[Rfam]
RNA sequence: UCGUUAAUGCUAAUCGUGAUAGGGGUUUUCUCUGUCUGACUGACCCCUGCCCGUUAGCAUUAGCAA
Numbered sequence: 001u002c003g004u005u006a007a008u009g010c011u012a013a014u015c016g017u018g019a020u021a022g023g024g025g026u027u028u029u030c031u032c033u034g035u036c037u038g039a040c041u042g043a044c045c046c047c048u049g050c051c052c053g054u055u056a057g058c059a060u061u062a063g064c065a066a
Stems, first nucleotide, its partner, number of pairs: 004063011020049004025044003
Annotation: Rfam assigns this 66-nucleotide sequence from Ornithorhynchus anatinus to the family "mir-155 microRNA precursor family". Its family is annotated with RISC complex and miRNA-mediated post-transcriptional gene silencing in the Gene Ontology. The family's consensus secondary structure was predicted with RNAalifold.